[Rfam]
Description: Rfam assigns this 175-nucleotide sequence from Orrella dioscoreae to the family "Manganese Mn2+ riboswitch aptamer (yybP-ykoY)". NCBI's taxonomy places the organism under Bacteria, Pseudomonadota, Burkholderiales, Alcaligenaceae, Orrella. Rfam 15.1 lists 1,126 matches to the family in 1,062 species. The literature on the family includes a 2001 paper in Curr Biol by Argaman et al., "Novel small RNA-encoding genes in the intergenic regions of Escherichia coli". A search with the family's covariance model found it, with a score of 53 bits. The base pairs follow the family's consensus structure.
RNA sequence: CCUCUUGGGGAGUAGCCUGCUUCCGUGCAUUGCGGAAGAGCGCGAGUCAACACACUCGGUAUUGGAUACCGUGGCUCGGGCGGCGUAACAGCUUGGCGAGACCAACGGUGCAUCCACGCGGGUUUUGUCGGGCGUGUGCGGUGUGCCGUGGUUCUCGUACCCGGCUGGACUCCUC
Numbered sequence: 001c002c003u004c005u006u007g008g009g010g011a012g013u014a015g016c017c018u019g020c021u022u023c024c025g026u027g028c029a030u031u032g033c034g035g036a037a038g039a040g041c042g043c044g045a046g047u048c049a050a051c052a053c054a055c056u057c058g059g060u061a062u063u064g065g066a067u068a069c070c071g072u073g074g075c076u077c078g079g080g081c082g083g084c085g086u087a088a089c090a091g092c093u094u095g096g097c098g099a100g101a102c103c104a105a106c107g108g109u110g111c112a113u114c115c116a117c118g119c120g121g122g123u124u125u126u127g128u129c130g131g132g133c134g135u136g137u138g139c140g141g142u143g144u145g146c147c148g149u150g151g152u153u154c155u156c157g158u159a160c161c162c163g164g165c166u167g168g169a170c171u172c173c174u175c
Base pairs, nucleotide, nucleotide: 020038021037022036040081041080043078044077045076046075047074048073049072057071058070059069060068061067082174083173085171